Notes: A member of the RNA family "MIR7486 microRNA precursor family" from Gossypium mustelinum, 87 nucleotides long. Taxonomically the source falls in Gossypium (Eukaryota, eudicotyledons, Gunneridae, Malvoideae). The family's consensus secondary structure was predicted with RNAalifold. Its family is annotated with miRNA-mediated post-transcriptional gene silencing and RISC complex in the Gene Ontology.
[Rfam]
RNA sequence: CACGUCAACGCGCUUUGCUGACGUUGACACAAAUCGCGUUUUCGUGGACGCACUUUGUUACCACGUCAUCAAAGCGCGCUGACGUGG
Numbered sequence: 001c002a003c004g005u006c007a008a009c010g011c012g013c014u015u016u017g018c019u020g021a022c023g024u025u026g027a028c029a030c031a032a033a034u035c036g037c038g039u040u041u042u043c044g045u046g047g048a049c050g051c052a053c054u055u056u057g058u059u060a061c062c063a064c065g066u067c068a069u070c071a072a073a074g075c076g077c078g079c080u081g082a083c084g085u086g087g
Base pairs, nucleotide, nucleotide: 001086002085003084004083005082006081007080009078010077011076012075013074014073015072016071017070019068020067021066023064024063026061029058030057031056032055033054036051037050038049040047041046
Dot-bracket structure: (((((((.(((((((((.(((.((.(..(((((..(((.((....)).)))..)))))..).)).))).))))))))).))))))).